RNA sequence: UACGAAUCUGGUGGAAUCACUUCUGCACAAGCCAGAUUAUCUAAACCGGUGUGCGGAAAUGCUUCUGCUCUAUUCUUA
Numbered sequence: 001u002a003c004g005a006a007u008c009u010g011g012u013g014g015a016a017u018c019a020c021u022u023c024u025g026c027a028c029a030a031g032c033c034a035g036a037u038u039a040u041c042u043a044a045a046c047c048g049g050u051g052u053g054c055g056g057a058a059a060u061g062c063u064u065c066u067g068c069u070c071u072a073u074u075c076u077u078a
Stems, first nucleotide, its partner, number of pairs: 001078002004075004010069007018061002021058009032049002